SR1 sRNA: a 232-nucleotide RNA sequence from Anoxybacillus flavithermus. On this family, see Heidrich et al., Nucleic Acids Res 2007: "In vitro analysis of the interaction between the small RNA SR1 and its primary target ahrC mRNA". It is annotated as a small RNA. A search with the family's covariance model found it, with a score of 83 bits.
RNA sequence: UAUGUAAUCAGUAAAACGUUUUCAAACAUUCCAAAGGAAAAGGGGUUAUCGGGGAUGGGUACAAUUGUAUGCCAAACAUGCAAUGCGACAAUCGAUCAUUUUGAAGAUGAAAAAGUAACGGUAUUGUACGGUCAAUGUUGCACAUGCGAUUGUGAAGACGAGGAAUAAUAAGCUUUGGGGGAUGGGGAGGAUAUAUAUAGAAAAGAGACUGGUUUUCGCCAGUCUCUUUUUU
Number, nucleotide and partner (000 for none) at each position: 001u000002a000003u000004g000005u000006a000007a000008u000009c000010a000011g000012u000013a000014a000015a000016a116017c115018g000019u114020u113021u112022u111023c000024a000025a108026a000027c000028a000029u000030u105031c000032c103033a102034a101035a100036g099037g000038a000039a000040a000041a000042g000043g000044g000045g000046u000047u000048a000049u000050c000051g000052g000053g000054g000055a000056u091057g000058g089059g000060u087061a000062c085063a084064a000065u000066u000067g000068u083069a000070u000071g000072c000073c000074a000075a000076a000077c000078a000079u000080g000081c000082a000083a068084u063085g062086c000087g060088a000089c058090a000091a056092u000093c000094g000095a000096u000097c000098a000099u036100u035101u034102u033103g032104a000105a030106g000107a000108u025109g000110a000111a022112a021113a020114a019115g017116u016117a000118a000119c000120g000121g000122u000123a000124u000125u000126g000127u000128a000129c000130g000131g000132u000133c000134a000135a000136u000137g000138u000139u000140g000141c000142a000143c000144a000145u000146g000147c000148g000149a000150u000151u000152g000153u000154g000155a000156a000157g000158a000159c000160g000161a000162g000163g000164a000165a000166u000167a000168a000169u000170a000171a000172g000173c000174u000175u000176u000177g000178g000179g000180g000181g000182a000183u000184g000185g000186g000187g000188a000189g000190g000191a000192u000193a000194u000195a000196u000197a000198u000199a000200g000201a230202a229203a228204a227205g226206a225207g224208a223209c222210u221211g220212g219213u218214u000215u000216u000217c000218g213219c212220c211221a210222g209223u208224c207225u206226c205227u204228u203229u202230u201231u000232u000
The base pairs follow the family's consensus structure, which is taken from published work. Lineage of the source: Bacteria > Bacillota > Caryophanales > Anoxybacillaceae > Anoxybacillus.